[Rfam]
RNA sequence: AAAAAUAAACCUCUCACAACGGAUCGUUGGGCACGUACCGCCCAUGAAAGGAUAGUUAU
Numbered sequence: 001a002a003a004a005a006u007a008a009a010c011c012u013c014u015c016a017c018a019a020c021g022g023a024u025c026g027u028u029g030g031g032c033a034c035g036u037a038c039c040g041c042c043c044a045u046g047a048a049a050g051g052a053u054a055g056u057u058a059u
Stems, first nucleotide, its partner, number of pairs: 010051003014047003028044005
RNA: msiK RNA